[Rfam]
RNA: Small nucleolar RNA SNORD121A
RNA sequence: GUCCAGAAGACAAUGAUGUGAUCUAUUCCAAGCACAUAGCUGAUUGCUCCAUGUGGAAACGUGAUUUUCUGAGUUUUCUGGAC
Numbered sequence: 001g002u003c004c005a006g007a008a009g010a011c012a013a014u015g016a017u018g019u020g021a022u023c024u025a026u027u028c029c030a031a032g033c034a035c036a037u038a039g040c041u042g043a044u045u046g047c048u049c050c051a052u053g054u055g056g057a058a059a060c061g062u063g064a065u066u067u068u069c070u071g072a073g074u075u076u077u078c079u080g081g082a083c
Stems, first nucleotide, its partner, number of pairs: 001083006008076004